Source information
Shown here is a 102-nucleotide RNA from Caenorhabditis briggsae, a member of the family "mir-36 microRNA precursor family".

RNA sequence: ACUGUUAGUCUGACUCGGUCCUGCGCCACUUUCCACCGCGGUGAUAUUCCAAGCAAAACGGUUAUCACCGGGUGAAAAUUGGUACAGGUCCGAUCCUCUUCU
Numbered sequence: 001a002c003u004g005u006u007a008g009u010c011u012g013a014c015u016c017g018g019u020c021c022u023g024c025g026c027c028a029c030u031u032u033c034c035a036c037c038g039c040g041g042u043g044a045u046a047u048u049c050c051a052a053g054c055a056a057a058a059c060g061g062u063u064a065u066c067a068c069c070g071g072g073u074g075a076a077a078a079u080u081g082g083u084a085c086a087g088g089u090c091c092g093a094u095c096c097u098c099u100u101c102u
Base pairs, nucleotide, nucleotide: 016092017091018090020088021087022086025083026082027081028080030078031077032076034074035073036072037071039070041068042067043066044065045064046063
Rfam 15.1 lists 199 matches to the family in 31 species. The base pairs follow the family's consensus structure, which was predicted with WAR. Rfam links the family to the GO terms RISC complex and miRNA-mediated post-transcriptional gene silencing. NCBI's taxonomy places the organism under Eukaryota, Opisthokonta, Metazoa, Chromadorea, Caenorhabditis.